Shown here is a 200-nucleotide sequence from Ferrovum myxofaciens, a member of the family "Group II catalytic intron D1-D4-3".

RNA sequence: GUCGUCGUGAGGCGGGGUGGAAAGUAACCGGAAGCGAACUGUUGGUCCGUAGGAUAACGAACCUGUUUCGGCGGUGUAUGGCGGCGAGCCUUCACGAAGGCGGCGAAGCCUGGAAUCAAUGCAGCACGCUGUAGUGGCGGAUAAAGCGAUGCUGUGGCGUACAACGUGAUUGAGGACGGAACGAUGGGAAGGUGGCACGC
Dot-bracket structure: .(((((....))))).............(((..((...(((((.((((((...........(((......(((.((((((..(((..(((...........)))...)))...............................................)))))).))).....)))))))).))))))....))..).)).

The source organism's lineage runs through Bacteria, Pseudomonadota, Ferrovales, Ferrovaceae and Ferrovum. From the family's description: Group II introns are found in rRNA, tRNA and mRNA of organelles in fungi, plants and protists, and also in mRNA in bacteria. The pairing is the family consensus, mapped onto this sequence. A search with the family's covariance model found it, with a score of 40 bits.